[Rfam]
RNA sequence: UUAUACAGUCAGAGCUAUAAAUCUCUCCCUGUGUGAUACGGAGUAAGAAAGAUUUGGUGAGAAUAUCGUUUCAGGCGUCCAUUAAUUGAUUGACGAUCUGAUUGUUGCUCUUCAACAU
Number, nucleotide and partner (000 for none) at each position: 001u000002u000003a000004u035005a034006c033007a032008g000009u000010c000011a026012g025013a024014g023015c000016u000017a000018u000019a000020a000021a000022u000023c014024u013025c012026u011027c000028c000029c000030u000031g000032u007033g006034u005035g004036a000037u000038a000039c000040g000041g000042a000043g000044u000045a000046a000047g000048a000049a000050a000051g000052a000053u000054u000055u000056g000057g113058u000059g110060a109061g108062a000063a000064u000065a102066u101067c100068g099069u000070u000071u000072c000073a000074g097075g000076c095077g094078u093079c092080c000081a000082u089083u088084a000085a000086u000087u000088g083089a082090u000091u000092g079093a078094c077095g076096a000097u074098c000099u068100g067101a066102u065103u000104g000105u000106u000107g000108c061109u060110c059111u000112u000113c057114a000115a000116c000117a000118u000